A member of the RNA family "ASpks TB sRNA" from Streptomyces sp. AJS327, 75 nucleotides long.
It is annotated as an antisense RNA.
For this family Rfam cites "Identification of small RNAs in Mycobacterium tuberculosis" (Arnvig and Young, Mol Microbiol, 2009).
RNA sequence: CUUCACCGAGCCCAGCCACAGCGGGUGUUGCGGGUCGCGGCCCUUGCCGUAGGUGGCCAGGAGGGCCUGCGCCUC
Numbered sequence: 001c002u003u004c005a006c007c008g009a010g011c012c013c014a015g016c017c018a019c020a021g022c023g024g025g026u027g028u029u030g031c032g033g034g035u036c037g038c039g040g041c042c043c044u045u046g047c048c049g050u051a052g053g054u055g056g057c058c059a060g061g062a063g064g065g066c067c068u069g070c071g072c073c074u075c
Stems, first nucleotide, its partner, number of pairs: 014026001016024002031071002038065001043060002047056003